[Rfam]
RNA sequence: AACUCCAUGAAAAAUAAUGUCACAUGUCAUGUUCUGAUUGAAUGUCGAUUCCAUAAAAGAUAAAAUGUAUUGUUAUUUUCAUUGACUAAUCAAAACAUGACAUGUGACAGUCAUCAUCU
Numbered sequence: 001a002a003c004u005c006c007a008u009g010a011a012a013a014a015u016a017a018u019g020u021c022a023c024a025u026g027u028c029a030u031g032u033u034c035u036g037a038u039u040g041a042a043u044g045u046c047g048a049u050u051c052c053a054u055a056a057a058a059g060a061u062a063a064a065a066u067g068u069a070u071u072g073u074u075a076u077u078u079u080c081a082u083u084g085a086c087u088a089a090u091c092a093a094a095a096c097a098u099g100a101c102a103u104g105u106g107a108c109a110g111u112c113a114u115c116a117u118c119u
Stems, first nucleotide, its partner, number of pairs: 019108004024103002028099003032095002035092001037090003
Dot-bracket structure: ..................((((.((..(((.((.(.(((................................................))).).)).)))..)).))))...........
Overview
The record is a 119-nucleotide RNA from Glycine max, which matches "MIR1520 microRNA precursor family" in Rfam. Pairs were carried over by alignment from the consensus structure, which was predicted with RNAalifold. Rfam links the family to the GO terms RISC complex and miRNA-mediated post-transcriptional gene silencing. Lineage of the source: Eukaryota > Euphyllophyta > Magnoliopsida > eudicotyledons > Glycine subgen. Soja. Its Rfam clan is "MIR1520 microRNA precursor clan".